[Rfam]
RNA sequence: GGGCAUGGACAGGGUUGGUCUUCCCUUUACAGCUGAACAGGUCUAAGAUAAGUAAUUCAGCUUAAAACUCAGAAAAAAACUAACUGAUGUUUUAACUCAAUUUUGGAUCUUUACAGCUGGAAUAGAU
Numbered sequence: 001g002g003g004c005a006u007g008g009a010c011a012g013g014g015u016u017g018g019u020c021u022u023c024c025c026u027u028u029a030c031a032g033c034u035g036a037a038c039a040g041g042u043c044u045a046a047g048a049u050a051a052g053u054a055a056u057u058c059a060g061c062u063u064a065a066a067a068c069u070c071a072g073a074a075a076a077a078a079a080c081u082a083a084c085u086g087a088u089g090u091u092u093u094a095a096c097u098c099a100a101u102u103u104u105g106g107a108u109c110u111u112u113a114c115a116g117c118u119g120g121a122a123u124a125g126a127u
Stems, first nucleotide, its partner, number of pairs: 002049001004047001006045005014038003017033001056121001058119005069106006078097001
About this RNA
Small nucleolar RNA SNORA26: a 127-nucleotide RNA from Sitta europaea. Pairs were carried over by alignment from the consensus structure, which was predicted with RNAalifold. From the family's description: The snoRNA HBI-6 belong to the H/ACA family of snoRNAs, guiding the pseudouridylation of position U4522 if the 28S rRNA. HBI-6 is the human orthologue of mouse MBI-6 snoRNA. Rfam classes the family as an H/ACA-box small nucleolar RNA. The organism belongs to Sitta, within Eukaryota. Its family is annotated with nucleolus and RNA processing in the Gene Ontology. The family has 76 seed sequences and 1,943 matches in Rfam 15.1.